[Rfam]
RNA sequence: ACCUGCUCCGCUUUAGCAGCACGUAAAUAUUGGUGUGGGAGAAUAAGGCCAAAACCCCAAUAUUACUUGUGCUGCCUCAGUGUGGCAGGG
Number, nucleotide and partner (000 for none) at each position: 001a000002c089003c088004u087005g086006c085007u000008c000009c000010g000011c000012u000013u000014u000015a000016g075017c074018a073019g072020c071021a070022c069023g068024u000025a000026a064027a063028u062029a061030u060031u059032g058033g057034u000035g055036u054037g000038g000039g000040a000041g000042a000043a000044u000045a000046a000047g000048g000049c000050c000051a000052a000053a000054a036055c035056c000057c033058c032059a031060a030061u029062a028063u027064u026065a000066c000067u000068u023069g022070u021071g020072c019073u018074g017075c016076c000077u000078c000079a000080g000081u000082g000083u000084g000085g006086c005087a004088g003089g002090g000
A member of the RNA family "mir-15 microRNA precursor family" from Acipenser ruthenus, 90 nucleotides long. NCBI's taxonomy places the organism under Eukaryota, Deuterostomia, Gnathostomata, Actinopterygii, Acipenser. A search with the family's covariance model found it, with a score of 68 bits. Pairs were carried over by alignment from the consensus structure, which was predicted with RNAalifold. Its Rfam clan is "mir-15 clan". This family represents the related mir-15a and mir-15b sequences. In humans miR-15a and miR-16 are clustered within 0.5 kb at 13q14. This region has been shown to be deleted in more than half of B cell chronic lymphocytic leukaemias (CLL).